[Rfam]
RNA: Purine riboswitch aptamer
Organism: Bacillus sp. V5-8f
RNA sequence: UCCCUAUAAAAAUUAUAUCCUUGUAUAAUAUCAGUGAACAUGGUCUGAUAGUUUCUACCCGGCAGCCGUAAAUGCAGGACUACAAGGAAGUGUGCAAAAUAA
Numbered sequence: 001u002c003c004c005u006a007u008a009a010a011a012a013u014u015a016u017a018u019c020c021u022u023g024u025a026u027a028a029u030a031u032c033a034g035u036g037a038a039c040a041u042g043g044u045c046u047g048a049u050a051g052u053u054u055c056u057a058c059c060c061g062g063c064a065g066c067c068g069u070a071a072a073u074g075c076a077g078g079a080c081u082a083c084a085a086g087g088a089a090g091u092g093u094g095c096a097a098a099a100u101a102a
Base pairs, nucleotide, nucleotide: 018088019087020086021085022084023083024082025081029050030049031048032047033046034045059078060077062075063074064073